This 73-nucleotide RNA from Thiolapillus brandeum belongs to the Rfam family "tRNA". The base pairs follow the family's consensus structure, which is taken from published work. Rfam classes the family as a transfer RNA. The match comes from Rfam's covariance-model search (74 bits). About the family: Transfer RNA (tRNA) molecules are approximately 80 nucleotides in length.
[Rfam]
RNA sequence: GGGUCGUUAGCUCAGUCGGUAGAGCAGUUGACUUUUAAUCAAUUGGUCGGGCGUUCGAAUCGCCCACGACCCA
Numbered sequence: 001g002g003g004u005c006g007u008u009a010g011c012u013c014a015g016u017c018g019g020u021a022g023a024g025c026a027g028u029u030g031a032c033u034u035u036u037a038a039u040c041a042a043u044u045g046g047u048c049g050g051g052c053g054u055u056c057g058a059a060u061c062g063c064c065c066a067c068g069a070c071c072c073a
Stems, first nucleotide, its partner, number of pairs: 001072007010025004027043005049065005